[Rfam]
RNA sequence: CCGUCAGUAUUUAUUAUGAAACUGAACAUUUAUGUUUAAAGUUCUAUUGAAUUUUCGACUUAUAUCCAAAUAAUGGAAUGAGAGCGAGGU
Numbered sequence: 001c002c003g004u005c006a007g008u009a010u011u012u013a014u015u016a017u018g019a020a021a022c023u024g025a026a027c028a029u030u031u032a033u034g035u036u037u038a039a040a041g042u043u044c045u046a047u048u049g050a051a052u053u054u055u056c057g058a059c060u061u062a063u064a065u066c067c068a069a070a071u072a073a074u075g076g077a078a079u080g081a082g083a084g085c086g087a088g089g090u
Stems, first nucleotide, its partner, number of pairs: 003027001004025005010020002056086002059082005065077003
pan motif: a 90-nucleotide RNA from Clostridium carboxidivorans.
NCBI's taxonomy places the organism under Bacteria, Eubacteriales, Clostridiaceae, Clostridium, Clostridium carboxidivorans.
The family's consensus secondary structure is taken from published work.